[Rfam]
RNA sequence: AAGGCAUGCUGGGGUCCCGCCAGCGGCGCCUGGGAAUAACCCCCGACACCCGACGGGACGAAG
Numbered sequence: 001a002a003g004g005c006a007u008g009c010u011g012g013g014g015u016c017c018c019g020c021c022a023g024c025g026g027c028g029c030c031u032g033g034g035a036a037u038a039a040c041c042c043c044c045g046a047c048a049c050c051c052g053a054c055g056g057g058a059c060g061a062a063g
Base pairs, nucleotide, nucleotide: 014059015058016057017056018055019054025050026049031045032044033043034042